Background:
Rfam assigns this 80-nucleotide sequence from Lacinutrix sp. Bg11-31 to the family "Flavo-1 RNA". It scores 56 bits against the family's covariance model. The base pairs follow the family's consensus structure, which is taken from published work.
[Rfam]
RNA sequence: GUGCGUUAAGGAUAGAAGUGGCAUCCUUUUUUUGCUGCCAUAUAUGGCAAAAAAAGAUAUAACGUAGAGCCUGACCAAGA
Numbered sequence: 001g002u003g004c005g006u007u008a009a010g011g012a013u014a015g016a017a018g019u020g021g022c023a024u025c026c027u028u029u030u031u032u033u034g035c036u037g038c039c040a041u042a043u044a045u046g047g048c049a050a051a052a053a054a055a056g057a058u059a060u061a062a063c064g065u066a067g068a069g070c071c072u073g074a075c076c077a078a079g080a
Stems, first nucleotide, its partner, number of pairs: 009072003013068001018063002023058003029053008